[Rfam]
RNA sequence: AUUCCUGAUGUGUAUUGUUCACCAAUACACUCUGGCAGCAAGCGAAGGUGUCGUUGGCACCCGUGACAUGAUCCCCCCGGUUGUGUCACGAUUUUUUUUA
Numbered sequence: 001a002u003u004c005c006u007g008a009u010g011u012g013u014a015u016u017g018u019u020c021a022c023c024a025a026u027a028c029a030c031u032c033u034g035g036c037a038g039c040a041a042g043c044g045a046a047g048g049u050g051u052c053g054u055u056g057g058c059a060c061c062c063g064u065g066a067c068a069u070g071a072u073c074c075c076c077c078c079g080g081u082u083g084u085g086u087c088a089c090g091a092u093u094u095u096u097u098u099u100a
Base pairs, nucleotide, nucleotide: 010030011029012028013027014026015025016024017023035043036042047061048060049059050058051057052056062090063089064088065087066086067085068084069083070082071081072080073079

Translational regulator of tfoXVC: a 100-nucleotide RNA sequence from Vibrio rumoiensis.
The family's RNA type in Rfam is small RNA.
The match comes from Rfam's covariance-model search (89 bits).